[Rfam]
RNA: Selenocysteine transfer RNA
RNA sequence: GCCCAGAGGACUCUCUGUGGUCUGGGGUGCAGGCUUCAAACCUGUAACUGUCUAGUGACAGAGUGGUUCAUUUCCCCCUGUCAGGU
Numbered sequence: 001g002c003c004c005a006g007a008g009g010a011c012u013c014u015c016u017g018u019g020g021u022c023u024g025g026g027g028u029g030c031a032g033g034c035u036u037c038a039a040a041c042c043u044g045u046a047a048c049u050g051u052c053u054a055g056u057g058a059c060a061g062a063g064u065g066g067u068u069c070a071u072u073u074c075c076c077c078c079u080g081u082c083a084g085g086u
Stems, first nucleotide, its partner, number of pairs: 001086003006081001008079002012027004017022001028046006048061005063077001065075002